RNA: Glycine riboswitch aptamer
Organism: Solemya velesiana gill symbiont
RNA sequence: CAAUCCCCUACGGGAGAUGCAGGUGCUGAUUGUCGAACAGACUGCGCCGGAGCCGAAGGCGCAAACCGUCCGGAAUCGCUCAGGCAAAAGGACCGUAGGGAAGAG
Numbered sequence: 001c002a003a004u005c006c007c008c009u010a011c012g013g014g015a016g017a018u019g020c021a022g023g024u025g026c027u028g029a030u031u032g033u034c035g036a037a038c039a040g041a042c043u044g045c046g047c048c049g050g051a052g053c054c055g056a057a058g059g060c061g062c063a064a065a066c067c068g069u070c071c072g073g074a075a076u077c078g079c080u081c082a083g084g085c086a087a088a089a090g091g092a093c094c095g096u097a098g099g100g101a102a103g104a105g
Stems, first nucleotide, its partner, number of pairs: 006100008020050001022048005052085003055081002059079003066072001